[Rfam]
RNA sequence: GAAUCAUACAGGGGGAGCUCGCCGCAGCGGGCUGAGAGGAGGCUUUGUCGCUUCGACCCACAACCUGAUUUGGAUAAUGCCAACGUAGGGACAGCAUCGUAUUUUAUGG
Numbered sequence: 001g002a003a004u005c006a007u008a009c010a011g012g013g014g015g016a017g018c019u020c021g022c023c024g025c026a027g028c029g030g031g032c033u034g035a036g037a038g039g040a041g042g043c044u045u046u047g048u049c050g051c052u053u054c055g056a057c058c059c060a061c062a063a064c065c066u067g068a069u070u071u072g073g074a075u076a077a078u079g080c081c082a083a084c085g086u087a088g089g090g091a092c093a094g095c096a097u098c099g100u101a102u103u104u105u106a107u108g109g
Base pairs, nucleotide, nucleotide: 006097007096009094012059013058014057017032018031019030020029021028039054040053041052042051043050064089065088066087067086070083071082072081073080
RNA: TPP riboswitch aptamer (THI element)
Organism: Eubacterium callanderi